[Rfam]
RNA sequence: UUUAAGUGGAGUCCAGAACCCACGCUUAAAAAAACGGGGAGCAACUGAAAAUCCAUAAGAGUAGGGGAAUU
Numbered sequence: 001u002u003u004a005a006g007u008g009g010a011g012u013c014c015a016g017a018a019c020c021c022a023c024g025c026u027u028a029a030a031a032a033a034a035c036g037g038g039g040a041g042c043a044a045c046u047g048a049a050a051a052u053c054c055a056u057a058a059g060a061g062u063a064g065g066g067g068a069a070u071u
Stems, first nucleotide, its partner, number of pairs: 006023004038054003045065002
The record is a 71-nucleotide RNA from Lutibacter agarilyticus, which matches "DUF805 RNA" in Rfam.
By type it is a cis-regulatory element.